[Rfam]
RNA: 23S methyl RNA motif
RNA sequence: UUUUCAUAGGCUUUUCUCAGAAGAUAUUUUGAUAAAAGGUUAUGAUCAAAGGUCUUACUAACGUAACGUUUUGCUGUGAUUGCCACCGAAACGAUGCGUUUUUUU
Numbered sequence: 001u002u003u004u005c006a007u008a009g010g011c012u013u014u015u016c017u018c019a020g021a022a023g024a025u026a027u028u029u030u031g032a033u034a035a036a037a038g039g040u041u042a043u044g045a046u047c048a049a050a051g052g053u054c055u056u057a058c059u060a061a062c063g064u065a066a067c068g069u070u071u072u073g074c075u076g077u078g079a080u081u082g083c084c085a086c087c088g089a090a091a092c093g094a095u096g097c098g099u100u101u102u103u104u105u
Stems, first nucleotide, its partner, number of pairs: 004045006011038005017032003060100006067093007076086003